[Rfam]
Record summary:
The record is a 92-nucleotide sequence from Striga asiatica, which matches "mir-156 microRNA precursor family" in Rfam.
RNA sequence: GUGACAGAAGAGAGUGAGCACAAAUGGUGUAUUUUCUUGCAUGAAAUUAGUCAUAUGCUUGAAGCUAUGUGUGCUCACUCUCUAUCUGUCAC
Numbered sequence: 001g002u003g004a005c006a007g008a009a010g011a012g013a014g015u016g017a018g019c020a021c022a023a024a025u026g027g028u029g030u031a032u033u034u035u036c037u038u039g040c041a042u043g044a045a046a047u048u049a050g051u052c053a054u055a056u057g058c059u060u061g062a063a064g065c066u067a068u069g070u071g072u073g074c075u076c077a078c079u080c081u082c083u084a085u086c087u088g089u090c091a092c
Base pairs, nucleotide, nucleotide: 001092002091003090004089005088006087007086008085010082011081012080013079014078015077016076017075018074019073020072021071024068025067026066027065
Dot-bracket structure: ((((((((.((((((((((((..((((.....................................))))..))))))))))))..))))))))
Lineage of the source: Eukaryota > Streptophytina > Euphyllophyta > Orobanchaceae > Striga.
A reference for the family is Reinhart et al. (2002), "MicroRNAs in plants", Genes Dev.
Rfam describes the family as follows. This family represents the plant microRNA (miRNA) precursor mir-156.
The family has 10 seed sequences and 1,401 matches in Rfam 15.1.